[Rfam]
RNA sequence: CCGUGCUAGAUGGGGAACCAGCGAUGCCCUGUAACCUGCGAUCGCUACAGCAGGGUUGAAUUCCCGGCUAGAGGCCUGAACGAGUUGGGCAGCACUCAGGUAGUGGUGUUGAGAUUUGGGUCCCACGCAACAUAUGCCGGUGAACCUCGUCAGGACCGGAAGGUAGCAGCGAUAAAUCGGAAUGUUAUGUGUGCCGUGGAUCACUCGAGUUGAGCUAACCCUCGAGAGACGACGAGUCGUUCUUGUCGAAGCCGGGUGCACGG
Numbered sequence: 001c002c003g004u005g006c007u008a009g010a011u012g013g014g015g016a017a018c019c020a021g022c023g024a025u026g027c028c029c030u031g032u033a034a035c036c037u038g039c040g041a042u043c044g045c046u047a048c049a050g051c052a053g054g055g056u057u058g059a060a061u062u063c064c065c066g067g068c069u070a071g072a073g074g075c076c077u078g079a080a081c082g083a084g085u086u087g088g089g090c091a092g093c094a095c096u097c098a099g100g101u102a103g104u105g106g107u108g109u110u111g112a113g114a115u116u117u118g119g120g121u122c123c124c125a126c127g128c129a130a131c132a133u134a135u136g137c138c139g140g141u142g143a144a145c146c147u148c149g150u151c152a153g154g155a156c157c158g159g160a161a162g163g164u165a166g167c168a169g170c171g172a173u174a175a176a177u178c179g180g181a182a183u184g185u186u187a188u189g190u191g192u193g194c195c196g197u198g199g200a201u202c203a204c205u206c207g208a209g210u211u212g213a214g215c216u217a218a219c220c221c222u223c224g225a226g227a228g229a230c231g232a233c234g235a236g237u238c239g240u241u242c243u244u245g246u247c248g249a250a251g252c253c254g255g256g257u258g259c260a261c262g263g
Stems, first nucleotide, its partner, number of pairs: 001263006009057003012030004017025001019023001035054005063256007073247003079241005085235003093228001095226003099222002103219002105216003113211009123199005128191002131189004137180005147172004155164003
The family of this 263-nucleotide sequence from Clostridiaceae bacterium JG1575 is "Bacterial large signal recognition particle RNA". By type it is a non-coding RNA gene.